[Rfam]
RNA sequence: GGCUCUGAUAUUGUCCUGUCACAGCAGUACUGUUUAAGAGAUACUGUUGGUGCGGGACAUGACCAGAGCU
Numbered sequence: 001g002g003c004u005c006u007g008a009u010a011u012u013g014u015c016c017u018g019u020c021a022c023a024g025c026a027g028u029a030c031u032g033u034u035u036a037a038g039a040g041a042u043a044c045u046g047u048u049g050g051u052g053c054g055g056g057a058c059a060u061g062a063c064c065a066g067a068g069c070u
Stems, first nucleotide, its partner, number of pairs: 003068004012059007022049008
RNA: mir-1000 microRNA precursor family
Organism: Ceutorhynchus assimilis